Shown here is a 170-nucleotide RNA from Roseburia sp. OF03-24, a member of the family "Group II catalytic intron D1-D4-3".

RNA sequence: GUAUCGGUAACGGUAUGGAUGGAGGAAGUGGUGUAGCAAAGUUCUUGAGCCUACGAACAGAAACUUGAUAAGGCGAUUAGGUGGGUAAGAUUGCAAAUCAAAUCGAAGCCCAAAUGGUGAACGUAAACCGAAAUUGUAAAUCAAGAGGUUGUGGAACGAAAGAUUAGUGU
Numbered sequence: 001g002u003a004u005c006g007g008u009a010a011c012g013g014u015a016u017g018g019a020u021g022g023a024g025g026a027a028g029u030g031g032u033g034u035a036g037c038a039a040a041g042u043u044c045u046u047g048a049g050c051c052u053a054c055g056a057a058c059a060g061a062a063a064c065u066u067g068a069u070a071a072g073g074c075g076a077u078u079a080g081g082u083g084g085g086u087a088a089g090a091u092u093g094c095a096a097a098u099c100a101a102a103u104c105g106a107a108g109c110c111c112a113a114a115u116g117g118u119g120a121a122c123g124u125a126a127a128c129c130g131a132a133a134u135u136g137u138a139a140a141u142c143a144a145g146a147g148g149u150u151g152u153g154g155a156a157c158g159a160a161a162g163a164u165u166a167g168u169g170u
Stems, first nucleotide, its partner, number of pairs: 001016006028170003032166001037162001041157005047152001048150005064145005073137003077132002080129003083111004089104004
Rfam describes the family as follows. Group II introns are found in rRNA, tRNA and mRNA of organelles in fungi, plants and protists, and also in mRNA in bacteria. It scores 116 bits against the family's covariance model. NCBI's taxonomy places the organism under Bacteria, Bacillati, Clostridia, Lachnospirales, Roseburia. On this family, see Bonen and Vogel, Trends Genet 2001: "The ins and outs of group II introns".